Potassium channel RNA editing signal: a 114-nucleotide sequence from Oryzias javanicus.
On this family, see Bhalla et al., Nat Struct Mol Biol 2004: "Control of human potassium channel inactivation by editing of a small mRNA hairpin".
The source organism's lineage runs through Eukaryota, Clupeocephala, Percomorphaceae, Ovalentaria and Oryzias.
The family's consensus secondary structure is taken from published work.
About the family: This family represents a group of sequences related to the human potassium channel Kv1.1 hairpin element which directs the efficient modification of an adenosine to inosine by an adenosine deaminase acting on RNA (ADAR). The ADAR modification causes an isoleucine/valine recoding event which lies in the ion-conducting pore of the potassium channel. It is thought that this editing event targets the process of fast inactivation and allows a more rapid recovery from inactivation at negative potentials.
[Rfam]
RNA sequence: GUAGGAUAUGGAGAUAUCUACCCAAAAACUCUGUUAGGAAAGAUUGUAGGGGGGUUGUGCUGCAUUGCUGGAGUACUUGUGAUCGCCCUACCAAUUCCUAUCAUUGUAAAUAAC
Numbered sequence: 001g002u003a004g005g006a007u008a009u010g011g012a013g014a015u016a017u018c019u020a021c022c023c024a025a026a027a028a029c030u031c032u033g034u035u036a037g038g039a040a041a042g043a044u045u046g047u048a049g050g051g052g053g054g055u056u057g058u059g060c061u062g063c064a065u066u067g068c069u070g071g072a073g074u075a076c077u078u079g080u081g082a083u084c085g086c087c088c089u090a091c092c093a094a095u096u097c098c099u100a101u102c103a104u105u106g107u108a109a110a111u112a113a114c
Stems, first nucleotide, its partner, number of pairs: 001114002004111001007108005013102004020095001037077002040074001049063001051061001
By type it is a cis-regulatory element.